[Rfam]
RNA sequence: AAAAGUGAAUAUGGUGGGGACUGUAUAAUUGGGGGAAUAGGGCUCCCAAGUUUCUACCGGGCAACCGUAAAUUGCCCUGGCUACAGCCUGAAAGUGUACCUCA
Numbered sequence: 001a002a003a004a005g006u007g008a009a010u011a012u013g014g015u016g017g018g019g020a021c022u023g024u025a026u027a028a029u030u031g032g033g034g035g036a037a038u039a040g041g042g043c044u045c046c047c048a049a050g051u052u053u054c055u056a057c058c059g060g061g062c063a064a065c066c067g068u069a070a071a072u073u074g075c076c077c078u079g080g081c082u083a084c085a086g087c088c089u090g091a092a093a094g095u096g097u098a099c100c101u102c103a
Base pairs, nucleotide, nucleotide: 018089019088021086022085023084024083025082029049030048031047032046033045034044035043058079059077060076061075062074063073064072
The record is a 103-nucleotide RNA from Neomoorella humiferrea, which matches "Purine riboswitch aptamer" in Rfam. Lineage of the source: Bacteria > Bacillota > Clostridia > Neomoorellales > Neomoorella. It scores 71 bits against the family's covariance model.